[Rfam]
RNA sequence: GAUCGGGCCCUGCGCGGCUUGUGAUCGUGAACCGAGUCAGGGCCGGAAGGCAGCAGCUCUCAGCGGAACCAUAAGGGUGCCGCAGUAAGUCUGAUCUCU
Numbered sequence: 001g002a003u004c005g006g007g008c009c010c011u012g013c014g015c016g017g018c019u020u021g022u023g024a025u026c027g028u029g030a031a032c033c034g035a036g037u038c039a040g041g042g043c044c045g046g047a048a049g050g051c052a053g054c055a056g057c058u059c060u061c062a063g064c065g066g067a068a069c070c071a072u073a074a075g076g077g078u079g080c081c082g083c084a085g086u087a088a089g090u091c092u093g094a095u096c097u098c099u
Base pairs, nucleotide, nucleotide: 004093005092006091007090008089010085011084012083013082014081015077018075019074020073021072022071025066026065027064028063034059035058036057037056042051043050044049
The record is a 99-nucleotide RNA sequence from Acidithrix ferrooxidans, which matches "Bacterial small signal recognition particle RNA" in Rfam. Pairs were carried over by alignment from the consensus structure, which is taken from published work. Rfam classes the family as a non-coding RNA gene.